[Rfam]
RNA sequence: CACACGUCAGUGACGGGCUCACAGUAAACCAGCUGUGGGAUGUGAGCUCUGAUGGAAACUUGUGGG
Numbered sequence: 001c002a003c004a005c006g007u008c009a010g011u012g013a014c015g016g017g018c019u020c021a022c023a024g025u026a027a028a029c030c031a032g033c034u035g036u037g038g039g040a041u042g043u044g045a046g047c048u049c050u051g052a053u054g055g056a057a058a059c060u061u062g063u064g065g066g
Base pairs, nucleotide, nucleotide: 001066003064004063005062015049016048017047018046019045020044021043022042023041029038030037031036
Notes:
The family of this 66-nucleotide RNA from Salarias fasciatus is "Selenocysteine insertion sequence 1". Taxonomically the source falls in Salarias (Eukaryota, Eumetazoa, Craniata, Teleostei). It scores 35 bits against the family's covariance model. For this family Rfam cites "A survey of metazoan selenocysteine insertion sequences" (Lambert et al., Biochimie, 2002). The family's RNA type in Rfam is cis-regulatory element.